The family of this 87-nucleotide sequence from Triticum aestivum is "MIR1120/MIR1122 microRNA precursor family". Rfam 15.1 lists 44,765 matches to the family in 8 species. On this family, see Yao et al., Genome Biol 2007: "Cloning and characterization of microRNAs from wheat (Triticum aestivum L.)". Lineage of the source: Eukaryota > Viridiplantae > Mesangiospermae > Triticinae > Triticum. Pairs were carried over by alignment from the consensus structure, which was predicted with RNAalifold. The match comes from Rfam's covariance-model search (90 bits).
[Rfam]
RNA sequence: GUACUCCGUCCGUCCCAUAAUAUAAGAACGUUUUUGACACUAUGAUAGUAUCAAAAACGUUCUUAUAUUUUGGGACAGAGGGAGUAU
Numbered sequence: 001g002u003a004c005u006c007c008g009u010c011c012g013u014c015c016c017a018u019a020a021u022a023u024a025a026g027a028a029c030g031u032u033u034u035u036g037a038c039a040c041u042a043u044g045a046u047a048g049u050a051u052c053a054a055a056a057a058c059g060u061u062c063u064u065a066u067a068u069u070u071u072g073g074g075a076c077a078g079a080g081g082g083a084g085u086a087u
Base pairs, nucleotide, nucleotide: 003085004084005083007081009079010078013075014074015073016072017071019069020068021067022066023065024064025063026062027061028060029059030058031057032056033055034054035053036052037051039049040048041047